[Rfam]
RNA sequence: GAUGAGAAAUCUCUGGAAUUGCUGUACCACAUUGAUGAUUCCCUUGAAUCCUUCUAUAUCUGAUGACUGUAGCUGUUCUAU
Numbered sequence: 001g002a003u004g005a006g007a008a009a010u011c012u013c014u015g016g017a018a019u020u021g022c023u024g025u026a027c028c029a030c031a032u033u034g035a036u037g038a039u040u041c042c043c044u045u046g047a048a049u050c051c052u053u054c055u056a057u058a059u060c061u062g063a064u065g066a067c068u069g070u071a072g073c074u075g076u077u078c079u080a081u
Stems, first nucleotide, its partner, number of pairs: 002081003006077001